[Rfam]
Rfam assigns this 120-nucleotide RNA from Paenibacillus sp. 32O-W to the family "pan motif". Taxonomically the source falls in Paenibacillus (Bacteria, Bacillota, Caryophanales, Paenibacillaceae). Rfam classes the family as a cis-regulatory element.
RNA sequence: CGGGCGGUAUCGCAUGUCGCCGAACUGCACCGUCGUGUUAUGGGGUAUGAUACAGGUUAAUAAGAAGUAACUGCAGGCAUUGCGCACUCUGCUCUGAGCCGUAGGGACCGAGACAGAAGG
Numbered sequence: 001c002g003g004g005c006g007g008u009a010u011c012g013c014a015u016g017u018c019g020c021c022g023a024a025c026u027g028c029a030c031c032g033u034c035g036u037g038u039u040a041u042g043g044g045g046u047a048u049g050a051u052a053c054a055g056g057u058u059a060a061u062a063a064g065a066a067g068u069a070a071c072u073g074c075a076g077g078c079a080u081u082g083c084g085c086a087c088u089c090u091g092c093u094c095u096g097a098g099c100c101g102u103a104g105g106g107a108c109c110g111a112g113a114c115a116g117a118a119g120g
Base pairs, nucleotide, nucleotide: 001032002031003030004028005027006026007025008024010023011022089116090115091114092112093111094110096108099106100105